[Rfam]
RNA sequence: GAGGAAAUACUCAAGAGGCCGAAGAGGUGCCCCUGCUAAGGGCAUAGGUCGAGAAAUCGGCGCGAGGGUUCAAAUCCCUCUUUCCUCG
Numbered sequence: 001g002a003g004g005a006a007a008u009a010c011u012c013a014a015g016a017g018g019c020c021g022a023a024g025a026g027g028u029g030c031c032c033c034u035g036c037u038a039a040g041g042g043c044a045u046a047g048g049u050c051g052a053g054a055a056a057u058c059g060g061c062g063c064g065a066g067g068g069u070u071c072a073a074a075u076c077c078c079u080c081u082u083u084c085c086u087c088g
Stems, first nucleotide, its partner, number of pairs: 001087007010026003028044005064080005
The record is an 88-nucleotide sequence from Bulleidia extructa, which matches "tRNA" in Rfam. The source organism's lineage runs through Bacteria, Bacillati, Bacillota, Erysipelotrichia and Bulleidia extructa. The family's RNA type in Rfam is transfer RNA. The family's consensus secondary structure is taken from published work. Its Rfam clan is "tRNA clan". A search with the family's covariance model found it, with a score of 52 bits.